Nucleotides: 119
Base pairs, nucleotide, nucleotide: 001119002118003117004116005115006114007113008112009111010110011109013107014106015105016104019103020102021101022100023099024098026096027095028094029093030092031091032090033089034088036086037085038084039083041081042080043079044078045077046076047075048074049073050072051071052070053069054068055067056066
Number, partner (000 for none) and nucleotide at each position: 001119a002118u003117a004116g005115g006114u007113g008112c009111c010110g011109g012000u013107u014106u015105u016104u017000u018000a019103a020102a021101a022100a023099a024098a025000c026096c027095c028094g029093a030092c031091a032090c033089c034088u035000u036086u037085a038084a039083u040000a041081u042080a043079u044078u045077a046076u047075a048074g049073g050072u051071g052070u053069c054068g055067g056066u057000a058000a059000a060000u061000u062000a063000a064000a065000a066056a067055u068054c069053g070052g071051c072050a073049c074048c075047u076046a077045u078044a079043a080042u081041a082000a083039a084038u085037u086036a087000u088034a089033g090032g091031u092030g093029u094028c095027g096026g097000u098024u099023u100022u101021u102020u103019u104016a105015a106014a107013a108000a109011c110010c111009g112008g113007c114006a115005c116004c117003u118002g119001u